Source information
A member of the RNA family "Phenylalanine leader peptide" from Jejuibacter calystegiae, 125 nucleotides long. The family's RNA type in Rfam is cis-regulatory leader. A reference for the family is Zurawski et al. (1978), "Nucleotide sequence of the leader region of the phenylalanine operon of Escherichia coli", Proc Natl Acad Sci U S A.
[Rfam]
RNA sequence: CAAGCAUGAACGCUGCUAUUUUCCGCUUCUUUUUUUACUUUAGCGCCUGACUCAGGGGGGCUUUACGCGUAAGAAAAGAAACGGAAAGUACGCUAAAAGGCCUCCUGAAUGGAGGCUUUUUUUUU
Numbered sequence: 001c002a003a004g005c006a007u008g009a010a011c012g013c014u015g016c017u018a019u020u021u022u023c024c025g026c027u028u029c030u031u032u033u034u035u036u037a038c039u040u041u042a043g044c045g046c047c048u049g050a051c052u053c054a055g056g057g058g059g060g061c062u063u064u065a066c067g068c069g070u071a072a073g074a075a076a077a078g079a080a081a082c083g084g085a086a087a088g089u090a091c092g093c094u095a096a097a098a099g100g101c102c103u104c105c106u107g108a109a110u111g112g113a114g115g116c117u118u119u120u121u122u123u124u125u
Stems, first nucleotide, its partner, number of pairs: 015093002017090002020087006027080007035072004041055001056066001058064002097119009